Shown here is a 152-nucleotide sequence from Solanum lycopersicum, a member of the family "U4 spliceosomal RNA".
The match comes from Rfam's covariance-model search (91 bits).

[Rfam]
RNA sequence: GUGUUUGCAAUUGAAAAAGGACGUAGCUAGUGAGGUUCUAACCGAGGCGCGUCUAUUGCUGGUUGAAAACUAUUUCCAAACCUCCUCAUCGGCCUUGGUGUUUGCCAAGGCCGCUGAGAAUUUUUGGAAGGGCUUCCCUUUGGGGUAAAGCC
Numbered sequence: 001g002u003g004u005u006u007g008c009a010a011u012u013g014a015a016a017a018a019g020g021a022c023g024u025a026g027c028u029a030g031u032g033a034g035g036u037u038c039u040a041a042c043c044g045a046g047g048c049g050c051g052u053c054u055a056u057u058g059c060u061g062g063u064u065g066a067a068a069a070c071u072a073u074u075u076c077c078a079a080a081c082c083u084c085c086u087c088a089u090c091g092g093c094c095u096u097g098g099u100g101u102u103u104g105c106c107a108a109g110g111c112c113g114c115u116g117a118g119a120a121u122u123u124u125u126g127g128a129a130g131g132g133c134u135u136c137c138c139u140u141u142g143g144g145g146u147a148a149a150g151c152c
Stems, first nucleotide, its partner, number of pairs: 020053005026048003034043003085118003090113010131152004

Background
Clan: U4 clan.